[Rfam]
RNA sequence: AGGAGGAACAACCCCAGUGGCAGCGGCCAGGUCUGAACACCUGUAUUCAGCCCCCGCAGUAACUCUGGAGCAGUCCAUCUGCAGGGCCUGGAGCCUCUGGUGCAGG
Numbered sequence: 001a002g003g004a005g006g007a008a009c010a011a012c013c014c015c016a017g018u019g020g021c022a023g024c025g026g027c028c029a030g031g032u033c034u035g036a037a038c039a040c041c042u043g044u045a046u047u048c049a050g051c052c053c054c055c056g057c058a059g060u061a062a063c064u065c066u067g068g069a070g071c072a073g074u075c076c077a078u079c080u081g082c083a084g085g086g087c088c089u090g091g092a093g094c095c096u097c098u099g100g101u102g103c104a105g106g
Base pairs, nucleotide, nucleotide: 002098003097004096005095006094009090010089012086013085014084019079020078023075025074030071032069033068034067035066037064041059042058043057
RNA: mir-8834 microRNA precursor family